[Rfam]
RNA sequence: ACAGGUGGAGGGGGGUCAUAGCAGAAGCAUUCACAUUGUGAUCCCUGCCAGGUAAUACCUGUAAUAACUAUA
Numbered sequence: 001a002c003a004g005g006u007g008g009a010g011g012g013g014g015g016u017c018a019u020a021g022c023a024g025a026a027g028c029a030u031u032c033a034c035a036u037u038g039u040g041a042u043c044c045c046u047g048c049c050a051g052g053u054a055a056u057a058c059c060u061g062u063a064a065u066a067a068c069u070a071u072a
Base pairs, nucleotide, nucleotide: 012045013044014043015042016041017040021071023069024068027039028038029037049061050060051059052058053057
RNA: Mammalian CPEB3 ribozyme